RNA sequence: GGCGGGGUGAACAGACUGAUCUUGUUUCUGCGGAAAUGUUAUUUGCAACCAUUUCGGCGAUAAGAUCAGCCUGUCGAACCUUGC
Dot-bracket structure: .(((((((..((((.(((((((((((......((((((...........))))))...))))))))))).))))...)))))))
Numbered sequence: 001g002g003c004g005g006g007g008u009g010a011a012c013a014g015a016c017u018g019a020u021c022u023u024g025u026u027u028c029u030g031c032g033g034a035a036a037u038g039u040u041a042u043u044u045g046c047a048a049c050c051a052u053u054u055c056g057g058c059g060a061u062a063a064g065a066u067c068a069g070c071c072u073g074u075c076g077a078a079c080c081u082u083g084c
Stems, first nucleotide, its partner, number of pairs: 002084007011074004016069011033055006